Shown here is a 78-nucleotide sequence from Enterococcus sp. PFB1-1, a member of the family "Fluoride riboswitch aptamer (crcB RNA motif)".
[Rfam]
RNA sequence: AAGAAUACAGGGAAUGAUGUUCUCCCUUGGCAUUUUUGCCAAAACCGCAAAUGACUUGCUAAUGACUUCUACCACUUU
Numbered sequence: 001a002a003g004a005a006u007a008c009a010g011g012g013a014a015u016g017a018u019g020u021u022c023u024c025c026c027u028u029g030g031c032a033u034u035u036u037u038g039c040c041a042a043a044a045c046c047g048c049a050a051a052u053g054a055c056u057u058g059c060u061a062a063u064g065a066c067u068u069c070u071a072c073c074a075c076u077u078u
Stems, first nucleotide, its partner, number of pairs: 010026004016069002019066003047059004
It scores 46 bits against the family's covariance model. Taxonomically the source falls in Enterococcus (Bacteria, Bacilli, Lactobacillales, Enterococcaceae).